RNA sequence: AAGAUUGUAUGAUAGCGAUAGAGAGCACGCCUGUAAACAGUCAUGUUCCUCACAUGAAUGCUGACAAGCAUGCUCUCUCUCGUUGUCAAGCAAUU
Numbered sequence: 001a002a003g004a005u006u007g008u009a010u011g012a013u014a015g016c017g018a019u020a021g022a023g024a025g026c027a028c029g030c031c032u033g034u035a036a037a038c039a040g041u042c043a044u045g046u047u048c049c050u051c052a053c054a055u056g057a058a059u060g061c062u063g064a065c066a067a068g069c070a071u072g073c074u075c076u077c078u079c080u081c082g083u084u085g086u087c088a089a090g091c092a093a094u095u
Base pairs, nucleotide, nucleotide: 010088011087012086013085014084016082017081020078021077023075025073026072027071029069030068032066033065034064

A member of the RNA family "MIR535 microRNA precursor family" from Vitis vinifera, 95 nucleotides long. Pairs were carried over by alignment from the consensus structure, which was predicted with RNAalifold. Taxonomically the source falls in Vitis (Eukaryota, Streptophyta, eudicotyledons, Vitaceae). Rfam 15.1 lists 544 matches to the family in 108 species. The literature on the family includes a 2010 paper in Nucleic Acids Res by Zeng et al., "Conservation and divergence of microRNAs and their functions in Euphorbiaceous plants".